[Rfam]
RNA sequence: AGACUCGUCAAAGUGACUGUGAAAUGGUGAAAUGCUCAAAUCACAGUCUGCUUUGGUGAGCUUUU
Numbered sequence: 001a002g003a004c005u006c007g008u009c010a011a012a013g014u015g016a017c018u019g020u021g022a023a024a025u026g027g028u029g030a031a032a033u034g035c036u037c038a039a040a041u042c043a044c045a046g047u048c049u050g051c052u053u054u055g056g057u058g059a060g061c062u063u064u065u
Base pairs, nucleotide, nucleotide: 005059006058007057008056009055010054011053012052013051015048016047017046018045019044020043021042022041025040
About this RNA: A member of the RNA family "mir-2 microRNA precursor family" from Dreissena polymorpha, 65 nucleotides long. It scores 50 bits against the family's covariance model. The base pairs follow the family's consensus structure, which was predicted with PFOLD. Lineage of the source: Eukaryota > Metazoa > Spiralia > Dreissenidae > Dreissena.